[Rfam]
RNA sequence: UGGAGGAUUGAGAAGGUAAAGCAGUUGUAUUCUGUACUGCUUUUGACUGGUUAUAUUCUCCAACAUUAAGGAAUGGAAAAGCAGUCUGGGUUCUUUCUUUUUAGUCUGGAAACUCUACUGCAUUUUACAUUUA
Number, nucleotide and partner (000 for none) at each position: 001u000002g061003g060004a059005g058006g057007a000008u000009u000010g000011a000012g000013a000014a000015g048016g047017u046018a000019a042020a041021g040022c039023a038024g037025u036026u000027g000028u000029a000030u000031u000032c000033u000034g000035u000036a025037c024038u023039g022040c021041u020042u019043u000044u000045g000046a017047c016048u015049g000050g000051u000052u000053a000054u000055a000056u000057u006058c005059u004060c003061c002062a000063a000064c000065a000066u000067u000068a000069a000070g000071g000072a000073a000074u000075g000076g000077a000078a000079a000080a125081g124082c000083a000084g000085u000086c120087u000088g118089g000090g116091u000092u000093c000094u000095u000096u112097c000098u110099u109100u000101u000102u000103a000104g000105u000106c000107u000108g000109g099110a098111a000112a096113c000114u000115c000116u090117a000118c088119u000120g086121c000122a000123u000124u081125u080126u000127a000128c000129a000130u000131u000132u000133a000

The record is a 133-nucleotide RNA from Geotrypetes seraphini, which matches "Small nucleolar RNA SNORA47" in Rfam. Its family is annotated with RNA processing and nucleolus in the Gene Ontology.